A member of the RNA family "Small nucleolar RNA SNORD79" from Acipenser ruthenus, 78 nucleotides long. The organism belongs to Acipenser, within Eukaryota. Rfam's curators write: snoRNA U79 or Z22 is found in intron 7 of the gas5 gene in humans and is also present in mice. For this family Rfam cites "Purified box C/D snoRNPs are able to reproduce site-specific 2'-O-methylation of target RNA in vitro" (Galardi et al., Mol Cell Biol, 2002). Its family is annotated with nucleolus and RNA processing in the Gene Ontology.
RNA sequence: UGCUGUUCAUGAUGAAUGUAAAAAGAUGGGAAUCUCUCUGAAAUACAAUGAAAGAGAACCCUUUUUACUGAAAUGGCA
Number, nucleotide and partner (000 for none) at each position: 001u078002g077003c076004u075005g074006u073007u072008c000009a000010u000011g000012a000013u000014g000015a000016a000017u000018g000019u000020a000021a000022a000023a000024a000025g000026a000027u000028g000029g000030g000031a000032a000033u000034c000035u000036c000037u000038c000039u000040g000041a000042a000043a000044u000045a000046c000047a000048a000049u000050g000051a000052a000053a000054g000055a000056g000057a000058a000059c000060c000061c000062u000063u000064u000065u000066u000067a000068c000069u000070g000071a000072a007073a006074u005075g004076g003077c002078a001